[Rfam]
A member of the RNA family "Glycine riboswitch aptamer" from Streptomyces aurantiacus, 119 nucleotides long. Pairs were carried over by alignment from the consensus structure.
RNA sequence: UGAAUCCGCGCGGGAGAGUUCCCAGGACACGACAGUCGUCGGAGACGACACUCGUCCCGGGGCGCCGAAGGAGCAAGUUCCUCCCUUGAAUCUCUCAGGCCCCGUACCGCGCGGGCGAG
Numbered sequence: 001u002g003a004a005u006c007c008g009c010g011c012g013g014g015a016g017a018g019u020u021c022c023c024a025g026g027a028c029a030c031g032a033c034a035g036u037c038g039u040c041g042g043a044g045a046c047g048a049c050a051c052u053c054g055u056c057c058c059g060g061g062g063c064g065c066c067g068a069a070g071g072a073g074c075a076a077g078u079u080c081c082u083c084c085c086u087u088g089a090a091u092c093u094c095u096c097a098g099g100c101c102c103c104g105u106a107c108c109g110c111g112c113g114g115g116c117g118a119g
Stems, first nucleotide, its partner, number of pairs: 006114008020062004064100003067096002071094003077087001